[Rfam]
The record is a 93-nucleotide RNA from Rhodopseudomonas palustris, which matches "Glycine riboswitch aptamer" in Rfam. The source organism's lineage runs through Bacteria, Hyphomicrobiales, Nitrobacteraceae, Rhodopseudomonas and Rhodopseudomonas palustris. The sequence is in the family's curated seed alignment.
RNA sequence: CGACUGACAUCUGGAAAGAGACCCUGCCGGGCGAUCCCGGGACGGGUCCGCCGACGGGAUAAUGCUCUCAGGCACAGCGACAGAUGGGGCUCG
Numbered sequence: 001c002g003a004c005u006g007a008c009a010u011c012u013g014g015a016a017a018g019a020g021a022c023c024c025u026g027c028c029g030g031g032c033g034a035u036c037c038c039g040g041g042a043c044g045g046g047u048c049c050g051c052c053g054a055c056g057g058g059a060u061a062a063u064g065c066u067c068u069c070a071g072g073c074a075c076a077g078c079g080a081c082a083g084a085u086g087g088g089g090c091u092c093g
Stems, first nucleotide, its partner, number of pairs: 008086006020048004050073003053069002057067002